[Rfam]
RNA sequence: UCGGUUCGUCGGAACGCAGGCACUCGGGGUAGAUUCCGCGUGUGGUGUCUUCGGGCCGAAUCCCAACCUCGGGAUCUUGUUCGGGAGGAAAGUCCGGGCUUCAUAGGGCGCGGUGGUGGAUAACGUCCACCCCCGGUAACGGACGCGAGCUUCCCGGCUCGCGCCGCCAACGGGCGGGAAAGUGCAACAGAAAGUGUACCGCCGGCGAGUGCGGGAAAAGGGGAAAGAUAAAAGGAGAAAGGAAAAAGAGAAAAGGAAAAACAAAAUGAGCGCGAACUGUGUCGGUCAUUUUGCCUUUCCCCUUUUUCCUUUUACCUUUCCCCUUUUUCCUUUUCCUUCACUCGCCGGUAAGGGUGAAAAGGUGCGGGGCGCGAGCCCUUAAUGUAAGAGCGCACCAGCGGCGAGGUGACUCGUCGGCUCGGCAAACCCCACCGGAAGCAAGGUCAAGCAGGGGACAGGGUCGGCCCGACCCGUUACGAUCCCCGGGUAGACCGCUCGAUCCCGUCGGCAACGACGGGGCUAGAUAAAUGACCGUCACCGUCCGAAAGGGCGGGGACAAAACCCGGCUUACAGGCCGGCCGACAGA
Numbered sequence: 001u002c003g004g005u006u007c008g009u010c011g012g013a014a015c016g017c018a019g020g021c022a023c024u025c026g027g028g029g030u031a032g033a034u035u036c037c038g039c040g041u042g043u044g045g046u047g048u049c050u051u052c053g054g055g056c057c058g059a060a061u062c063c064c065a066a067c068c069u070c071g072g073g074a075u076c077u078u079g080u081u082c083g084g085g086a087g088g089a090a091a092g093u094c095c096g097g098g099c100u101u102c103a104u105a106g107g108g109c110g111c112g113g114u115g116g117u118g119g120a121u122a123a124c125g126u127c128c129a130c131c132c133c134c135g136g137u138a139a140c141g142g143a144c145g146c147g148a149g150c151u152u153c154c155c156g157g158c159u160c161g162c163g164c165c166g167c168c169a170a171c172g173g174g175c176g177g178g179a180a181a182g183u184g185c186a187a188c189a190g191a192a193a194g195u196g197u198a199c200c201g202c203c204g205g206c207g208a209g210u211g212c213g214g215g216a217a218a219a220g221g222g223g224a225a226a227g228a229u230a231a232a233a234g235g236a237g238a239a240a241g242g243a244a245a246a247a248g249a250g251a252a253a254a255g256g257a258a259a260a261a262c263a264a265a266a267u268g269a270g271c272g273c274g275a276a277c278u279g280u281g282u283c284g285g286u287c288a289u290u291u292u293g294c295c296u297u298u299c300c301c302c303u304u305u306u307u308c309c310u311u312u313u314a315c316c317u318u319u320c321c322c323c324u325u326u327u328u329c330c331u332u333u334u335c336c337u338u339c340a341c342u343c344g345c346c347g348g349u350a351a352g353g354g355u356g357a358a359a360a361g362g363u364g365c366g367g368g369g370c371g372c373g374a375g376c377c378c379u380u381a382a383u384g385u386a387a388g389a390g391c392g393c394a395c396c397a398g399c400g401g402c403g404a405g406g407u408g409a410c411u412c413g414u415c416g417g418c419u420c421g422g423c424a425a426a427c428c429c430c431a432c433c434g435g436a437a438g439c440a441a442g443g444u445c446a447a448g449c450a451g452g453g454g455a456c457a458g459g460g461u462c463g464g465c466c467c468g469a470c471c472c473g474u475u476a477c478g479a480u481c482c483c484c485g486g487g488u489a490g491a492c493c494g495c496u497c498g499a500u501c502c503c504g505u506c507g508g509c510a511a512c513g514a515c516g517g518g519g520c521u522a523g524a525u526a527a528a529u530g531a532c533c534g535u536c537a538c539c540g541u542c543c544g545a546a547a548g549g550g551c552g553g554g555g556a557c558a559a560a561a562c563c564c565g566g567c568u569u570a571c572a573g574g575c576c577g578g579c580c581g582a583c584a585g586a
Stems, first nucleotide, its partner, number of pairs: 002534003006531002009085002012082004090569003094566005099438004106467004111434005116130005131176001132174004177429002182427002184423002199353002201349011361396006398418001399416007442493004452484003458472005500519008
RNA: Bacterial RNase P class A
Organism: Gemmata sp. SH-PL17